The family of this 63-nucleotide RNA from Clostridium perfringens is "RAGATH-18 RNA".

RNA sequence: CCUUUGGAGAGCCAUACAAAAUCGUAGUAGCUUAAUGCAAGGCGAGGUUCUAUGAAGAAGGAA
Numbered sequence: 001c002c003u004u005u006g007g008a009g010a011g012c013c014a015u016a017c018a019a020a021a022u023c024g025u026a027g028u029a030g031c032u033u034a035a036u037g038c039a040a041g042g043c044g045a046g047g048u049u050c051u052a053u054g055a056a057g058a059a060g061g062a063a
Stems, first nucleotide, its partner, number of pairs: 001061005009050005022045003030038002

Actinobacteria, Firmicutes, Fusobacteria, Thermotogae (1 example).